[Rfam]
RNA sequence: AGGGUGCGAGAGCGUCAGUG
Numbered sequence: 001a002g003g004g005u006g007c008g009a010g011a012g013c014g015u016c017a018g019u020g
Base pairs, nucleotide, nucleotide: 003016004015005014006013007012
HIV-1 stem-loop 4 packaging signal: a 20-nucleotide RNA sequence from Lentivirus humimdef1. The sequence is in the family's curated seed alignment.